A member of the RNA family "SAM-I/IV (S-adenosyl methionine) riboswitch aptamer" from Sutterella megalosphaeroides, 121 nucleotides long.
RNA sequence: UUACGACAUUGCGAGUUGAGGGUCCUCUCCCUCACGCCAACCUGCCUUACCCGGGCAAGGUGGUCGCUCCUACGGGCAAAUGUGGUCGGUUUCGCGGAAGCCGACAAUUGUUCGGGUACAC
Numbered sequence: 001u002u003a004c005g006a007c008a009u010u011g012c013g014a015g016u017u018g019a020g021g022g023u024c025c026u027c028u029c030c031c032u033c034a035c036g037c038c039a040a041c042c043u044g045c046c047u048u049a050c051c052c053g054g055g056c057a058a059g060g061u062g063g064u065c066g067c068u069c070c071u072a073c074g075g076g077c078a079a080a081u082g083u084g085g086u087c088g089g090u091u092u093c094g095c096g097g098a099a100g101c102c103g104a105c106a107a108u109u110g111u112u113c114g115g116g117u118a119c120a121c
Base pairs, nucleotide, nucleotide: 006083007082008081009080010079015035017034018033019032020031021030036064037063038062041060042059043058044056045055046054050115051114085105086104087103088102089101090100091099092098093097

The match comes from Rfam's covariance-model search (48 bits). Its family is annotated with regulation of gene expression and S-adenosylmethionine metabolic process in the Gene Ontology.